[Rfam]
RNA: Small nucleolar RNA SNORD42
RNA sequence: GUGCAUAUGAUGGAAAAGUUUUAAUCUCCUGACACUUGUGAUGUCUUCAAAGGAACCACUGAUGCAC
Numbered sequence: 001g002u003g004c005a006u007a008u009g010a011u012g013g014a015a016a017a018g019u020u021u022u023a024a025u026c027u028c029c030u031g032a033c034a035c036u037u038g039u040g041a042u043g044u045c046u047u048c049a050a051a052g053g054a055a056c057c058a059c060u061g062a063u064g065c066a067c
Base pairs, nucleotide, nucleotide: 001067002066003065004064005063